Shown here is a 69-nucleotide RNA from Oncorhynchus tshawytscha, a member of the family "Small nucleolar RNA SNORD2". The base pairs follow the family's consensus structure, which was predicted with WAR. For this family Rfam cites "Identification of a novel box C/D snoRNA from mouse nucleolar cDNA library" (Zhou et al., Gene, 2004). Rfam 15.1 lists 1,116 matches to the family in 660 species. The organism belongs to Oncorhynchus, within Eukaryota. The match comes from Rfam's covariance-model search (63 bits).
RNA sequence: GAGUGAAAUGAUGGCAUUUCAUCUUUCGGGACAGACCUGAUAAUGGUGACAACUUAAUACUGAUCACUC
Numbered sequence: 001g002a003g004u005g006a007a008a009u010g011a012u013g014g015c016a017u018u019u020c021a022u023c024u025u026u027c028g029g030g031a032c033a034g035a036c037c038u039g040a041u042a043a044u045g046g047u048g049a050c051a052a053c054u055u056a057a058u059a060c061u062g063a064u065c066a067c068u069c
Stems, first nucleotide, its partner, number of pairs: 001069006